[Rfam]
RNA: Guanidine-I riboswitch aptamer
Organism: Sediminicurvatus halobius
RNA sequence: GCGAAGGACGACUAGGGUUCCGGUCCCGGGAGGGAUGUCUGGUCCGAGAGUCGUCGCCUCCUGCUGCGGGGGGUACACGGCGGGACAAAAGCCCGGGAGGU
Number, nucleotide and partner (000 for none) at each position: 001g000002c000003g000004a000005a000006g000007g055008a054009c053010g052011a051012c050013u000014a000015g045016g044017g000018u000019u000020c042021c041022g039023g036024u035025c034026c033027c032028g000029g000030g000031a000032g027033g026034g025035a024036u023037g000038u000039c022040u000041g021042g020043u000044c016045c015046g000047a000048g000049a000050g012051u011052c010053g009054u008055c007056g074057c073058c072059u071060c070061c069062u068063g067064c000065u000066g000067c063068g062069g061070g060071g059072g058073g057074u056075a000076c096077a000078c099079g000080g000081c000082g094083g093084g092085a000086c000087a000088a000089a000090a000091g000092c084093c083094c082095g000096g076097g000098a000099g078100g000101u000